[Rfam]
RNA: mir-252 microRNA precursor family
Organism: Strigamia maritima
RNA sequence: CAGGGGUGCUAAGUAGUUAUGCCGCAGGUAAGUUUUCAUUAUUACCUGCACAUGACUACUUAAUAUGCCCG
Number, nucleotide and partner (000 for none) at each position: 001c071002a000003g069004g068005g000006g066007u065008g000009c000010u062011a061012a060013g059014u058015a057016g056017u055018u054019a053020u000021g000022c000023c000024g049025c048026a047027g046028g045029u044030a043031a000032g000033u000034u000035u000036u000037c000038a000039u000040u000041a000042u000043u030044a029045c028046c027047u026048g025049c024050a000051c000052a000053u019054g018055a017056c016057u015058a014059c013060u012061u011062a010063a000064u000065a007066u006067g000068c004069c003070c000071g001